[Rfam]
Shown here is a 71-nucleotide sequence, a member of the family "mir-190 microRNA precursor family".
Gene Ontology terms of the family: miRNA-mediated post-transcriptional gene silencing and RISC complex.
A reference for the family is Kloosterman et al. (2006), "Cloning and expression of new microRNAs from zebrafish", Nucleic Acids Res.
RNA sequence: GACUCUGUGUGAUAUGUUUGAUAUAUUAGGUUGUUAUUUAAUCCAACUAUAUAUCAAACAUAUUCCUACAG
Numbered sequence: 001g002a003c004u005c006u007g008u009g010u011g012a013u014a015u016g017u018u019u020g021a022u023a024u025a026u027u028a029g030g031u032u033g034u035u036a037u038u039u040a041a042u043c044c045a046a047c048u049a050u051a052u053a054u055c056a057a058a059c060a061u062a063u064u065c066c067u068a069c070a071g
Stems, first nucleotide, its partner, number of pairs: 005071005011064015029048005